The family of this 175-nucleotide RNA sequence from Virgibacillus sp. SK37 is "Lysine riboswitch aptamer".

RNA sequence: CGAUGAGGUAGAGGUGCAGAUAAUAAGAGUAAUCAGCAGGAGAAUGACAUCUAGGAUUGUUGAUAAAAGGAUUAUUUGCCGAAGCAUAAGAAGUGUCACCUUUUUAUCGCUGGUAUGUUUUUGAAAAAGAAGUAUACUGUCAUACAUGGGAAGUGUAUGGAGCACUGCUGAUCGA
Numbered sequence: 001c002g003a004u005g006a007g008g009u010a011g012a013g014g015u016g017c018a019g020a021u022a023a024u025a026a027g028a029g030u031a032a033u034c035a036g037c038a039g040g041a042g043a044a045u046g047a048c049a050u051c052u053a054g055g056a057u058u059g060u061u062g063a064u065a066a067a068a069g070g071a072u073u074a075u076u077u078g079c080c081g082a083a084g085c086a087u088a089a090g091a092a093g094u095g096u097c098a099c100c101u102u103u104u105u106a107u108c109g110c111u112g113g114u115a116u117g118u119u120u121u122u123g124a125a126a127a128a129g130a131a132g133u134a135u136a137c138u139g140u141c142a143u144a145c146a147u148g149g150g151a152a153g154u155g156u157a158u159g160g161a162g163c164a165c166u167g168c169u170g171a172u173c174g175a
Stems, first nucleotide, its partner, number of pairs: 007169005016079009032064008083111003086107008112138011140160007